[Rfam]
RNA: MIR807 microRNA precursor family
Organism: Oryza meridionalis
RNA sequence: AACCACACUAUCGAUAAAUGGAUUCAUACGAUGAUGUGGUUAUUCCAUCUAGGAUAAGGACUUGGCAUCCUAUUAAUUUCGUGCGAUGGCUAGUAAUAGGAUGCCAUGUUCUCGUCCUAGGUGAAACAACCACGUCAUCUCGCGGGUGAAUCUAUUAAUUGAUAGUGUGGUU
Numbered sequence: 001a002a003c004c005a006c007a008c009u010a011u012c013g014a015u016a017a018a019u020g021g022a023u024u025c026a027u028a029c030g031a032u033g034a035u036g037u038g039g040u041u042a043u044u045c046c047a048u049c050u051a052g053g054a055u056a057a058g059g060a061c062u063u064g065g066c067a068u069c070c071u072a073u074u075a076a077u078u079u080c081g082u083g084c085g086a087u088g089g090c091u092a093g094u095a096a097u098a099g100g101a102u103g104c105c106a107u108g109u110u111c112u113c114g115u116c117c118u119a120g121g122u123g124a125a126a127c128a129a130c131c132a133c134g135u136c137a138u139c140u141c142g143c144g145g146g147u148g149a150a151u152c153u154a155u156u157a158a159u160u161g162a163u164a165g166u167g168u169g170g171u172u
Stems, first nucleotide, its partner, number of pairs: 001172007009164007017156003021152007030143001031138005037132005043126002047122002050119002053116002059110003065104011082093001